[Rfam]
RNA sequence: UGCAAGAGCACUCUGUGGUAACAUUAAUAUGUUAUUUACAAUUUGUUAUCUUGCUAUAUAAAAUCCAUUAAAUCCUAUUCCUGGUGUGGUCGUUCUCGCAACUUGGUCAUAAUGGUGGAAACAUUAAUAUUGG
Numbered sequence: 001u002g003c004a005a006g007a008g009c010a011c012u013c014u015g016u017g018g019u020a021a022c023a024u025u026a027a028u029a030u031g032u033u034a035u036u037u038a039c040a041a042u043u044u045g046u047u048a049u050c051u052u053g054c055u056a057u058a059u060a061a062a063a064u065c066c067a068u069u070a071a072a073u074c075c076u077a078u079u080c081c082u083g084g085u086g087u088g089g090u091c092g093u094u095c096u097c098g099c100a101a102c103u104u105g106g107u108c109a110u111a112a113u114g115g116u117g118g119a120a121a122c123a124u125u126a127a128u129a130u131u132g133g
Stems, first nucleotide, its partner, number of pairs: 002054006010046002014040003017036007025029001065133003069126002072124002078118002081115003085111004090106002
Rfam assigns this 133-nucleotide sequence from Danaus plexippus to the family "Small nucleolar RNA psi18S-841/snoR66". Taxonomically the source falls in Danaus plexippus (Eukaryota, Protostomia, Mandibulata, Danaini). The family is grouped with related families in Rfam's "SNORA28 clan". Rfam describes the family as follows. psi18S-841 is a member of the H/ACA class of snoRNA. This family is responsible for guiding the modification of uridine 841 in Drosophila 18S rRNA to pseudouridine. The base pairs follow the family's consensus structure, which was predicted with RNAfold.